The family of this 79-nucleotide RNA from Microcaecilia unicolor is "Small nucleolar RNA SNORD53/SNORD92". The family's RNA type in Rfam is C/D-box small nucleolar RNA. The literature on the family includes a 1996 paper in Cell by Kiss-Laszlo et al., "Site-specific ribose methylation of preribosomal RNA: a novel function for small nucleolar RNAs". Pairs were carried over by alignment from the consensus structure.
RNA sequence: UUGCUAUGAUGAUAACCAUAUAGGUUUCGCUUACUUCUGAAAAGUAGUGAAGACACCUUUCUCUUGGCUGUCUGAGCAG
Numbered sequence: 001u002u003g004c005u006a007u008g009a010u011g012a013u014a015a016c017c018a019u020a021u022a023g024g025u026u027u028c029g030c031u032u033a034c035u036u037c038u039g040a041a042a043a044g045u046a047g048u049g050a051a052g053a054c055a056c057c058u059u060u061c062u063c064u065u066g067g068c069u070g071u072c073u074g075a076g077c078a079g
Stems, first nucleotide, its partner, number of pairs: 001079004